SAM riboswitch aptamer (S box leader): a 103-nucleotide sequence from Bacillus sp. B-jedd. The SAM riboswitch is found upstream of a number of genes which code for proteins involved in methionine or cysteine biosynthesis in Gram-positive bacteria. The SAM riboswitch acts at the level of transcription termination control. The organism belongs to Bacillus, within Bacteria.

[Rfam]
RNA sequence: UUCUUAUCAAGAGCAGGCGGAGGGACUAGCCCUAUGAAGCCCGGCAACCGACUUAUUUUAAGCACGGUGCUAAUUCUUGCAGCGAACAGCUGAUAGAUGAGAA
Numbered sequence: 001u002u003c004u005u006a007u008c009a010a011g012a013g014c015a016g017g018c019g020g021a022g023g024g025a026c027u028a029g030c031c032c033u034a035u036g037a038a039g040c041c042c043g044g045c046a047a048c049c050g051a052c053u054u055a056u057u058u059u060a061a062g063c064a065c066g067g068u069g070c071u072a073a074u075u076c077u078u079g080c081a082g083c084g085a086a087c088a089g090c091u092g093a094u095a096g097a098u099g100a101g102a103a
Base pairs, nucleotide, nucleotide: 001103002102003101004100005099006098007097008096013042016041017040018039022032023031024030026079028077029076043071044070045069046068048067049066050063052062053061075095080092081091082090083089